[Rfam]
RNA sequence: CGAAAUGGCCUUACAGGCAUCCUCUCCCAAAACUUAAUGGCCCGGUCGGCUUGUCCGCCCGGGCCUUUUUUUGUCCUGA
Numbered sequence: 001c002g003a004a005a006u007g008g009c010c011u012u013a014c015a016g017g018c019a020u021c022c023u024c025u026c027c028c029a030a031a032a033c034u035u036a037a038u039g040g041c042c043c044g045g046u047c048g049g050c051u052u053g054u055c056c057g058c059c060c061g062g063g064c065c066u067u068u069u070u071u072u073g074u075c076c077u078g079a
Stems, first nucleotide, its partner, number of pairs: 008018004040064006047057002

The family of this 79-nucleotide RNA sequence from Croceicoccus sp. YJ47 is "Makes More Granules Regulator RNA (mmgR)". SuhB later renamed mmgR (makes more granules regulator) was a putative non-coding RNA found multiple times in the Agrobacterium tumefaciens genome and related alpha-proteobacteria. Other non-coding RNAs uncovered in the same analysis include: speF, ybhL, metA, and serC.Several studies inSinorhizobium meliloti showed that suhB element is indeed a non-coding RNA:firstly it was detected on Northern blot and called Sm8RNA, secondly in an RNAseq study referred to as SmelC689.The mutant phenotype's (strain lacking the small RNA) cytoplasm contains higher content of polyhydroxybutyrate (PBH)storage granules than wild type strain. Lineage of the source: Bacteria > Pseudomonadati > Alphaproteobacteria > Sphingomonadales > Croceicoccus.